[Rfam]
RNA sequence: UGGAAAUGAUGAAAUAGAGAUACUUGGGUGUUGAAUGUUGUCAUGAGUGGAAAUUUUUAGUAUGUAGAACAGUUCUCCUAGUUUAAUAGUGUGAGUGCAUGCAUGUGUGUGUGUUUGUGUGUGGUGGCUAUGAAAGGGGGCACUGAAUGGUGAUGCUGAUAUUGGAGUGCAUCUGAGGCUGUUGUAGAAAUAAUUGGGUUGUUGAUUACAAUAUUGCCGAUGAUUAUAGCCCAAAAACAGCUCACCUAAGUAGCCCAGCACCCUAACGUCUCUAACAGGCUCAUUAAAUGUCCUGUGAUCUGAUCCAG
Numbered sequence: 001u002g003g004a005a006a007u008g009a010u011g012a013a014a015u016a017g018a019g020a021u022a023c024u025u026g027g028g029u030g031u032u033g034a035a036u037g038u039u040g041u042c043a044u045g046a047g048u049g050g051a052a053a054u055u056u057u058u059a060g061u062a063u064g065u066a067g068a069a070c071a072g073u074u075c076u077c078c079u080a081g082u083u084u085a086a087u088a089g090u091g092u093g094a095g096u097g098c099a100u101g102c103a104u105g106u107g108u109g110u111g112u113g114u115u116u117g118u119g120u121g122u123g124g125u126g127g128c129u130a131u132g133a134a135a136g137g138g139g140g141c142a143c144u145g146a147a148u149g150g151u152g153a154u155g156c157u158g159a160u161a162u163u164g165g166a167g168u169g170c171a172u173c174u175g176a177g178g179c180u181g182u183u184g185u186a187g188a189a190a191u192a193a194u195u196g197g198g199u200u201g202u203u204g205a206u207u208a209c210a211a212u213a214u215u216g217c218c219g220a221u222g223a224u225u226a227u228a229g230c231c232c233a234a235a236a237a238c239a240g241c242u243c244a245c246c247u248a249a250g251u252a253g254c255c256c257a258g259c260a261c262c263c264u265a266a267c268g269u270c271u272c273u274a275a276c277a278g279g280c281u282c283a284u285u286a287a288a289u290g291u292c293c294u295g296u297g298a299u300c301u302g303a304u305c306c307a308g
Base pairs, nucleotide, nucleotide: 001307002306003305004304180213181212182211183210184209185208186207187206189203190202191201192200193199194198
RNA: Small Cajal body-specific RNA 7
Organism: Mesocricetus auratus